[Rfam]
Rfam assigns this 75-nucleotide RNA from Oligella urethralis to the family "tRNA".
Rfam classes the family as a transfer RNA.
RNA sequence: GCGCCCGUAGCUCAGUUGGAUUAGAGUGCUUGGCUACGAACCAAGAGGUCGUGGGUUCAAUUCCUGCCGGGCGCG
Numbered sequence: 001g002c003g004c005c006c007g008u009a010g011c012u013c014a015g016u017u018g019g020a021u022u023a024g025a026g027u028g029c030u031u032g033g034c035u036a037c038g039a040a041c042c043a044a045g046a047g048g049u050c051g052u053g054g055g056u057u058c059a060a061u062u063c064c065u066g067c068c069g070g071g072c073g074c075g
Stems, first nucleotide, its partner, number of pairs: 001074007010027004029045005051067005